[Rfam]
RNA sequence: GCACUGAAAGUAAGAAUUGGAGGAACAUGAACCUUGAUCAUAAGGAGGGUUCAGUUUCCUCUAAUAUCUUAUAUUCAGUGG
Numbered sequence: 001g002c003a004c005u006g007a008a009a010g011u012a013a014g015a016a017u018u019g020g021a022g023g024a025a026c027a028u029g030a031a032c033c034u035u036g037a038u039c040a041u042a043a044g045g046a047g048g049g050u051u052c053a054g055u056u057u058c059c060u061c062u063a064a065u066a067u068c069u070u071a072u073a074u075u076c077a078g079u080g081g
Stems, first nucleotide, its partner, number of pairs: 004078005011071004016065006023058003028053003032049004
RNA: MIR2275 microRNA precursor family
Organism: Musa balbisiana